[Rfam]
RNA sequence: GGGCUUUAAUUUCAUAAAGAUAGCACCUAUAUAAGCUUUGCUGGCUUGCCAGCUAUGGUGAUAAAUUGGCGUUGAAAUAAACCAUUCGGACCCGGGGGCGGUACCCGGCGCCUCCACCACCAACGGUUCGCAUCGUGUUCAAAGCACGGGAACUUUUGAUGAUGGGGGCGAAAUAGGAUCGACGAGGGCGUAAAGAGCGUACUUUCACUCGGCAUGAUACCGCCGUUAUCGGGUCAUUUGUAUAGUUGCAAACGACAACUACGCGGAAGCACGUCUCGCUGCUUAAUGCGGUGCGACAGCUUCACAUUAACUCCUAACGGUUCGCACUGUUAGGCGGGGUUCGCAGGCACCUGGCAACAGAAGCCUGCACU
Numbered sequence: 001g002g003g004c005u006u007u008a009a010u011u012u013c014a015u016a017a018a019g020a021u022a023g024c025a026c027c028u029a030u031a032u033a034a035g036c037u038u039u040g041c042u043g044g045c046u047u048g049c050c051a052g053c054u055a056u057g058g059u060g061a062u063a064a065a066u067u068g069g070c071g072u073u074g075a076a077a078u079a080a081a082c083c084a085u086u087c088g089g090a091c092c093c094g095g096g097g098g099c100g101g102u103a104c105c106c107g108g109c110g111c112c113u114c115c116a117c118c119a120c121c122a123a124c125g126g127u128u129c130g131c132a133u134c135g136u137g138u139u140c141a142a143a144g145c146a147c148g149g150g151a152a153c154u155u156u157u158g159a160u161g162a163u164g165g166g167g168g169c170g171a172a173a174u175a176g177g178a179u180c181g182a183c184g185a186g187g188g189c190g191u192a193a194a195g196a197g198c199g200u201a202c203u204u205u206c207a208c209u210c211g212g213c214a215u216g217a218u219a220c221c222g223c224c225g226u227u228a229u230c231g232g233g234u235c236a237u238u239u240g241u242a243u244a245g246u247u248g249c250a251a252a253c254g255a256c257a258a259c260u261a262c263g264c265g266g267a268a269g270c271a272c273g274u275c276u277c278g279c280u281g282c283u284u285a286a287u288g289c290g291g292u293g294c295g296a297c298a299g300c301u302u303c304a305c306a307u308u309a310a311c312u313c314c315u316a317a318c319g320g321u322u323c324g325c326a327c328u329g330u331u332a333g334g335c336g337g338g339g340u341u342c343g344c345a346g347g348c349a350c351c352u353g354g355c356a357a358c359a360g361a362a363g364c365c366u367g368c369a370c371u
Base pairs, nucleotide, nucleotide: 040053041052042051043050044049057209058208059207060206061205069200070199071198072197073196082188083187086185087184088183092108093107094106095105096104109170110169111168112167113166114165115164210225211224212223213222215236216235217234220232221231337352338351339350340349343368344367345366346365347364348363

Rfam assigns this 371-nucleotide RNA sequence from Ahrensia marina to the family "Alphaproteobacteria transfer-messenger RNA".
Its family is annotated with RNA catabolic process in the Gene Ontology.
Bacterial tmRNA, also known as 10Sa RNA or SsrA, is named for its dual tRNA and mRNA-like properties. Its role is to liberate the mRNA from a stalled ribosome. To accomplish this part of the tmRNA is used as a reading frame that ends in a translation stop signal. The broken mRNA is replaced in the ribosome by the tmRNA and translation of the tmRNA leads to addition of a proteolysis tag to the incomplete protein enabling recognition by a protease. Recently a number of permuted tmRNA genes have been found encoded in two parts. tmRNAs have been identified in eubacteria and some chloroplasts but are absent from archaeal and eukaryote nuclear genomes.
On this family, see Williams and Bartel, RNA 1996: "Phylogenetic analysis of tmRNA secondary structure".